[Rfam]
RNA: Guanidine-II riboswitch aptamer (mini-ykkC)
Organism: Afipia sp. GAS231
RNA sequence: GCGGAAGGACGGCCUUCCGAUCAGCACAUCAUCCGCGGGGACGACCCUG
Numbered sequence: 001g002c003g004g005a006a007g008g009a010c011g012g013c014c015u016u017c018c019g020a021u022c023a024g025c026a027c028a029u030c031a032u033c034c035g036c037g038g039g040g041a042c043g044a045c046c047c048u049g
Base pairs, nucleotide, nucleotide: 002019003018004017005016006015007014008013036049037048038047039046040045